[Rfam]
RNA sequence: UGGUGAUAAAGGCAAACCAACUGAAAGGUUGGGACGCAAAGCCACGGGUCUAAAGGUUUUACACCAAUGAUAGCCGGGUUACCUCU
Number, nucleotide and partner (000 for none) at each position: 001u000002g000003g000004u000005g000006a000007u000008a000009a000010a000011g000012g037013c036014a000015a000016a000017c032018c031019a030020a029021c028022u027023g000024a000025a000026a000027g022028g021029u020030u019031g018032g017033g000034a000035c000036g013037c012038a000039a000040a080041g079042c078043c077044a000045c076046g075047g074048g071049u070050c069051u000052a000053a000054a000055g065056g064057u063058u000059u000060u000061a000062c000063a057064c056065c055066a000067a000068u000069g050070a049071u048072a000073g000074c047075c046076g045077g043078g042079u041080u040081a000082c000083c000084u000085c000086u000